[Rfam]
Shown here is a 96-nucleotide sequence from Sediminispirochaeta smaragdinae, a member of the family "azaaromatic riboswitch aptamer (yjdF RNA)". Taxonomically the source falls in Sediminispirochaeta smaragdinae (Bacteria, Pseudomonadati, Spirochaetota, Spirochaetaceae). Pairs were carried over by alignment from the consensus structure, which is taken from published work.

RNA sequence: CAUUGGCAAAGAAAAAACACGGCCCUGUAGGUAGUCAGGGCGGUCCCUUCCGGAUCCCGUAACCAUCCUUGGAUGUCCGUCUUUGCCUCUGGAGUG
Numbered sequence: 001c002a003u004u005g006g007c008a009a010a011g012a013a014a015a016a017a018c019a020c021g022g023c024c025c026u027g028u029a030g031g032u033a034g035u036c037a038g039g040g041c042g043g044u045c046c047c048u049u050c051c052g053g054a055u056c057c058c059g060u061a062a063c064c065a066u067c068c069u070u071g072g073a074u075g076u077c078c079g080u081c082u083u084u085g086c087c088u089c090u091g092g093a094g095u096g
Stems, first nucleotide, its partner, number of pairs: 005087007022041006042056005066073002